[Rfam]
RNA sequence: GAGCCAGCCAAUGAACCUGCUGCUCUGAAUGUGUUUCUGCAGAAAUUUAGAAAAAGCUAGCAACAGUGAUGCCAGGCCACAACCCUUAAGGACAACUGAGGUCAUUAAGGUCCCUGAAAAUAGCUGUAAUA
Numbered sequence: 001g002a003g004c005c006a007g008c009c010a011a012u013g014a015a016c017c018u019g020c021u022g023c024u025c026u027g028a029a030u031g032u033g034u035u036u037c038u039g040c041a042g043a044a045a046u047u048u049a050g051a052a053a054a055a056g057c058u059a060g061c062a063a064c065a066g067u068g069a070u071g072c073c074a075g076g077c078c079a080c081a082a083c084c085c086u087u088a089a090g091g092a093c094a095a096c097u098g099a100g101g102u103c104a105u106u107a108a109g110g111u112c113c114c115u116g117a118a119a120a121u122a123g124c125u126g127u128a129a130u131a
Stems, first nucleotide, its partner, number of pairs: 003061002006058002017042004071124002074121001084110006091103003
Overview:
A member of the RNA family "Small nucleolar RNA SNORA33" from Jaculus jaculus, 131 nucleotides long. It scores 103 bits against the family's covariance model. Its family is annotated with RNA processing and nucleolus in the Gene Ontology. Rfam classes the family as an H/ACA-box small nucleolar RNA. The family has 28 seed sequences and 1,176 matches in Rfam 15.1. The base pairs follow the family's consensus structure, which was predicted with PFOLD.